[Rfam]
RNA: Phenylalanine leader peptide
RNA sequence: CAAGCGUGAAUGCUGCUAUUUUCCGUUUCUUUUUUUACUUUAGCACCUGAUCUUCGGGAGCUUCUGCGCACAAGAAAAGAAACGAAAAAUCGCGCUGAAAGCCUCCCUGAUGGAGGCUUUUUUCGU
Numbered sequence: 001c002a003a004g005c006g007u008g009a010a011u012g013c014u015g016c017u018a019u020u021u022u023c024c025g026u027u028u029c030u031u032u033u034u035u036u037a038c039u040u041u042a043g044c045a046c047c048u049g050a051u052c053u054u055c056g057g058g059a060g061c062u063u064c065u066g067c068g069c070a071c072a073a074g075a076a077a078a079g080a081a082a083c084g085a086a087a088a089a090u091c092g093c094g095c096u097g098a099a100a101g102c103c104u105c106c107c108u109g110a111u112g113g114a115g116g117c118u119u120u121u122u123u124c125g126u
Stems, first nucleotide, its partner, number of pairs: 015093002018090001020088003024084010035073002041056001057067001059065002098120009